[Rfam]
RNA: Caulobacter sRNA CC0196
RNA sequence: UUUUUGAAGACACCCACCAUCACCAAACUUUCAAGGCCCGGGCAUCUGUUCGGGCUUUU
Number, nucleotide and partner (000 for none) at each position: 001u000002u000003u000004u000005u000006g000007a000008a000009g000010a000011c000012a000013c000014c000015c000016a000017c000018c000019a000020u000021c000022a000023c000024c000025a000026a000027a000028c000029u000030u000031u000032c000033a000034a057035g056036g055037c054038c053039c052040g051041g050042g049043c000044a000045u000046c000047u000048g000049u042050u041051c040052g039053g038054g037055c036056u035057u034058u000059u000